[Rfam]
RNA sequence: ACCAUCCUUUUCUUGGGGUUGCACUACCAUCCAAUGAGCGCCUGGUGAGGGCAGUACGCUAAUGCCUAAACAACACACUCGCGUCAACUAAAGCUCUGCUUUAUGUUGGUACAAUUUUUGGAAAC
Numbered sequence: 001a002c003c004a005u006c007c008u009u010u011u012c013u014u015g016g017g018g019u020u021g022c023a024c025u026a027c028c029a030u031c032c033a034a035u036g037a038g039c040g041c042c043u044g045g046u047g048a049g050g051g052c053a054g055u056a057c058g059c060u061a062a063u064g065c066c067u068a069a070a071c072a073a074c075a076c077a078c079u080c081g082c083g084u085c086a087a088c089u090a091a092a093g094c095u096c097u098g099c100u101u102u103a104u105g106u107u108g109g110u111a112c113a114a115u116u117u118u119u120g121g122a123a124a125c
Base pairs, nucleotide, nucleotide: 006018007017008016009015021059022058026055027054030051031050032049038046039045081112083110084109085108086107089103090102091101092100093099094098